[Rfam]
RNA sequence: UGCACACACUCUGGAGAGAUCGGCCUGCCCUCGGGCAAGCGCCGGCGCCGAAGGGGCAAGACGCGCGGCGUUCUGGCGCGUCCAAACUCUCAGGCAGAAGGACAGAGGGGGCAAG
Numbered sequence: 001u002g003c004a005c006a007c008a009c010u011c012u013g014g015a016g017a018g019a020u021c022g023g024c025c026u027g028c029c030c031u032c033g034g035g036c037a038a039g040c041g042c043c044g045g046c047g048c049c050g051a052a053g054g055g056g057c058a059a060g061a062c063g064c065g066c067g068g069c070g071u072u073c074u075g076g077c078g079c080g081u082c083c084a085a086a087c088u089c090u091c092a093g094g095c096a097g098a099a100g101g102a103c104a105g106a107g108g109g110g111g112c113a114a115g
Base pairs, nucleotide, nucleotide: 007109009107010106011105012104013103020045021044022043023042047095048094049093050091051090054089055088056087060082061081062080063079064078065077066076
RNA: Glycine riboswitch aptamer
Organism: Cognatilysobacter lacus